[Rfam]
RNA sequence: GGCCUAGUCAUUUUUGUGCAUAUGCAAGCUGUCAAAUCAAUCACUUGCAUAGUCACAAAAGUGAUUGGGACA
Number, nucleotide and partner (000 for none) at each position: 001g000002g071003c000004c069005u068006a000007g066008u064009c063010a062011u061012u060013u059014u058015u057016g056017u055018g054019c000020a000021u000022a000023u049024g048025c047026a046027a045028g044029c000030u000031g000032u000033c000034a000035a000036a000037u000038c000039a000040a000041u000042c000043a000044c028045u027046u026047g025048c024049a023050u000051a000052g000053u000054c018055a017056c016057a015058a014059a013060a012061g011062u010063g009064a008065u000066u007067g000068g005069g004070a000071c002072a000
This 72-nucleotide sequence from Saccoglossus kowalevskii belongs to the Rfam family "mir-153 microRNA precursor family". The organism belongs to Saccoglossus, within Eukaryota. The base pairs follow the family's consensus structure, which was predicted with RNAalifold. Gene Ontology terms of the family: RISC complex and miRNA-mediated post-transcriptional gene silencing. For this family Rfam cites "The developmental miRNA profiles of zebrafish as determined by small RNA cloning" (Chen et al., Genes Dev, 2005).